A member of the RNA family "c-di-GMP-I-GGC riboswitch aptamer" from Sphingobium amiense, 77 nucleotides long.
The source organism's lineage runs through Bacteria, Pseudomonadati, Sphingomonadales, Sphingobiaceae and Sphingobium.
The match comes from Rfam's covariance-model search (72 bits).
Rfam links the family to the GO term cyclic-di-GMP binding.

RNA sequence: CCCGAUAAAGGCAAACCGGCGGUGACGCCGGGACGCAAAGCCUCCGGCCUUGGUGCAAGGUAGCGGGGCUGCCGAAG
Numbered sequence: 001c002c003c004g005a006u007a008a009a010g011g012c013a014a015a016c017c018g019g020c021g022g023u024g025a026c027g028c029c030g031g032g033a034c035g036c037a038a039a040g041c042c043u044c045c046g047g048c049c050u051u052g053g054u055g056c057a058a059g060g061u062a063g064c065g066g067g068g069c070u071g072c073c074g075a076a077g
Stems, first nucleotide, its partner, number of pairs: 001077001003074002011036002016031006034063001039070004044066003047061003